Shown here is a 71-nucleotide RNA from Dysgonomonas gade, a member of the family "Bacteroidetes FopS (family of paralogous sRNAs)". The match comes from Rfam's covariance-model search (76 bits). For this family Rfam cites "The global RNA-binding protein RbpB is a regulator of polysaccharide utilization in Bacteroides thetaiotaomicron" (Ruttiger et al., Nat Commun, 2025). Pairs were carried over by alignment from the consensus structure, which is taken from published work. Gene Ontology term of the family: sRNA-mediated gene silencing. The family has 12 seed sequences and 822 matches in Rfam 15.1.
[Rfam]
RNA sequence: GUGUUUUUCAUGGUAUUAGAUUUAAGGUUAACAAUGAAGAUUGGCUGUCGGGAUGACAGUCUUUUCUUAUU
Numbered sequence: 001g002u003g004u005u006u007u008u009c010a011u012g013g014u015a016u017u018a019g020a021u022u023u024a025a026g027g028u029u030a031a032c033a034a035u036g037a038a039g040a041u042u043g044g045c046u047g048u049c050g051g052g053a054u055g056a057c058a059g060u061c062u063u064u065u066c067u068u069a070u071u
Stems, first nucleotide, its partner, number of pairs: 043061007